Annotation: The record is a 119-nucleotide sequence from Streptomyces sp. ISL-94, which matches "Actinobacteria sRNA Ms_IGR-7" in Rfam. Rfam classes the family as a small RNA. The literature on the family includes a 2013 paper in RNA by Li et al., "Identification of small RNAs in Mycobacterium smegmatis using heterologous Hfq". Rfam 15.1 lists 463 matches to the family in 194 species. The pairing is the family consensus, mapped onto this sequence.

RNA sequence: CGGAAGUGCCCUCGUGAACGUGCUUGAUGUGGUCCUAGAGAAACCUCAUCAUCGCAGGUCACAGGGCACUUCCUCGUCUCCGGAGGAGCGGUCCACAGACAUCAAACCGGUGGAUCGAG
Numbered sequence: 001c002g003g004a005a006g007u008g009c010c011c012u013c014g015u016g017a018a019c020g021u022g023c024u025u026g027a028u029g030u031g032g033u034c035c036u037a038g039a040g041a042a043a044c045c046u047c048a049u050c051a052u053c054g055c056a057g058g059u060c061a062c063a064g065g066g067c068a069c070u071u072c073c074u075c076g077u078c079u080c081c082g083g084a085g086g087a088g089c090g091g092u093c094c095a096c097a098g099a100c101a102u103c104a105a106a107c108c109g110g111u112g113g114a115u116c117g118a119g
Stems, first nucleotide, its partner, number of pairs: 002073011015061003019057001021056003025051004032044002100117001102113003